RNA sequence: AUGACUCUAGCGUGAGAGUGUAUCGUUUACCACCGAUGGGGCAAUGUAUGCGGAACCUCACCACAUACAGAAUCUCUCAGGUUCCAUAGCGCUAGAUGAUG
Numbered sequence: 001a002u003g004a005c006u007c008u009a010g011c012g013u014g015a016g017a018g019u020g021u022a023u024c025g026u027u028u029a030c031c032a033c034c035g036a037u038g039g040g041g042c043a044a045u046g047u048a049u050g051c052g053g054a055a056c057c058u059c060a061c062c063a064c065a066u067a068c069a070g071a072a073u074c075u076c077u078c079a080g081g082u083u084c085c086a087u088a089g090c091g092c093u094a095g096a097u098g099a100u101g
Stems, first nucleotide, its partner, number of pairs: 006096008020030003032082003035078002039076003045069006
RNA: Glycine riboswitch aptamer